[Rfam]
RNA sequence: UGGGCAGUAUCAUUCGAACUGCACCUUUUCGUAAGAACCAUUCAAUAUUACACUGCCUGUAGCCAAUACGGACCGGGACAGAGGG
Numbered sequence: 001u002g003g004g005c006a007g008u009a010u011c012a013u014u015c016g017a018a019c020u021g022c023a024c025c026u027u028u029u030c031g032u033a034a035g036a037a038c039c040a041u042u043c044a045a046u047a048u049u050a051c052a053c054u055g056c057c058u059g060u061a062g063c064c065a066a067u068a069c070g071g072a073c074c075g076g077g078a079c080a081g082a083g084g085g
Base pairs, nucleotide, nucleotide: 002025003024004022005021006020007019008018010017011016053081054080055079056077057076058075059074063071064070
This 85-nucleotide sequence from Desulfitobacterium hafniense belongs to the Rfam family "pan motif". It is one of the family's seed sequences.